[Rfam]
RNA sequence: AAGAUCUUUGAGGCAAUAAAGACUAAGAAGGUUGGCUCAAGAACAAA
Number, nucleotide and partner (000 for none) at each position: 001a000002a000003g000004a000005u000006c000007u041008u040009u000010g038011a037012g036013g000014c034015a033016a032017u031018a000019a000020a000021g000022a000023c000024u000025a000026a000027g000028a000029a000030g000031g017032u016033u015034g014035g000036c012037u011038c010039a000040a008041g007042a000043a000044c000045a000046a000047a000
Rfam assigns this 47-nucleotide sequence from Beta vulgaris to the family "Plastid-rpl16 group II-D1 intron". Rfam links the family to the GO term Group II intron splicing. Lineage of the source: Eukaryota > Viridiplantae > Streptophyta > eudicotyledons > Beta vulgaris. The match comes from Rfam's covariance-model search (62 bits). The literature on the family includes a 2023 paper in Plant Commun by Richter et al., "Retrograde signaling in plants: A critical review focusing on the GUN pathway and beyond".